[Rfam]
Group I catalytic intron: a 260-nucleotide RNA from Chlorogloeopsis fritschii. The source organism's lineage runs through Bacteria, Cyanophyceae, Nostocales, Chlorogloeopsidaceae and Chlorogloeopsis fritschii. Pairs were carried over by alignment from the consensus structure, which is taken from published work. The literature on the family includes a 1990 paper in Annu Rev Biochem by Cech, "Self-splicing of group I introns". A search with the family's covariance model found it, with a score of 82 bits.

RNA sequence: CUACGGACUUAAGUAAUUGAGCCUUGAAGGAGAAAUCCUUUAAGUGUCCGCUCUCAAAUUCAGGGAAACCUAAAUCUGGUAACAGACAAGGCAAUCCUGAGCCAAGCCAAACUCGUCAAUUGUCAUUAGUCAUUUGUAUCUCGCAAAUGAUUACUAACAAAAGGCAAGUUUGGAAGGUGCAGAGACCCGACGGGAGCUACCCUAACGUAUAGUCGAGGGUAAAGGGAGAGUCCAAUUCUCAAAGCCUAAGAUAGUUGAAG
Numbered sequence: 001c002u003a004c005g006g007a008c009u010u011a012a013g014u015a016a017u018u019g020a021g022c023c024u025u026g027a028a029g030g031a032g033a034a035a036u037c038c039u040u041u042a043a044g045u046g047u048c049c050g051c052u053c054u055c056a057a058a059u060u061c062a063g064g065g066a067a068a069c070c071u072a073a074a075u076c077u078g079g080u081a082a083c084a085g086a087c088a089a090g091g092c093a094a095u096c097c098u099g100a101g102c103c104a105a106g107c108c109a110a111a112c113u114c115g116u117c118a119a120u121u122g123u124c125a126u127u128a129g130u131c132a133u134u135u136g137u138a139u140c141u142c143g144c145a146a147a148u149g150a151u152u153a154c155u156a157a158c159a160a161a162a163g164g165c166a167a168g169u170u171u172g173g174a175a176g177g178u179g180c181a182g183a184g185a186c187c188c189g190a191c192g193g194g195a196g197c198u199a200c201c202c203u204a205a206c207g208u209a210u211a212g213u214c215g216a217g218g219g220u221a222a223a224g225g226g227a228g229a230g231u232c233c234a235a236u237u238c239u240c241a242a243a244g245c246c247u248a249a250g251a252u253a254g255u256u257g258a259a260g
Stems, first nucleotide, its partner, number of pairs: 005024002008021005028039003050197004055192001060100006069091003101178002107172001109170001115165003182233001184232003188228001200219004239258004